The record is a 157-nucleotide sequence from Salipiger thiooxidans, which matches "6S / SsrS RNA" in Rfam.

RNA sequence: CGGGUUCUGCCCUUCUCGUGACAUGGUUGCAUUCCGGUGGCCUUAAGCAAUUCCGAGGGAGUUGGCUCUGUCCGGGCCCUGGUCCGGUUACCUGACGCCCACCUGUAUAUACAGGUCCUCGGGAAUGAGAUAACCCCACGGUUGCCGCGGUUCCCGC
Numbered sequence: 001c002g003g004g005u006u007c008u009g010c011c012c013u014u015c016u017c018g019u020g021a022c023a024u025g026g027u028u029g030c031a032u033u034c035c036g037g038u039g040g041c042c043u044u045a046a047g048c049a050a051u052u053c054c055g056a057g058g059g060a061g062u063u064g065g066c067u068c069u070g071u072c073c074g075g076g077c078c079c080u081g082g083u084c085c086g087g088u089u090a091c092c093u094g095a096c097g098c099c100c101a102c103c104u105g106u107a108u109a110u111a112c113a114g115g116u117c118c119u120c121g122g123g124a125a126u127g128a129g130a131u132a133a134c135c136c137c138a139c140g141g142u143u144g145c146c147g148c149g150g151u152u153c154c155c156g157c
Base pairs, nucleotide, nucleotide: 002155003154004153007150008149009148010147012144015141017140018139019138032125033124034123035122037120039118040116041115042114057100058099059098061096062095063094064093065092070089072087073086074085075084076083077082
Rfam's curators write: E. coli 6S RNA was the first non coding RNA to be sequenced, but its function was unknown until recently. It consists of 184 nucleotides that fold into an extended hairpin structure with a large single-stranded internal bulge. The 6S RNA specifically associates with RNA polymerase holoenzyme containing the sigma70 specificity factor. The base pairs follow the family's consensus structure, which is taken from published work.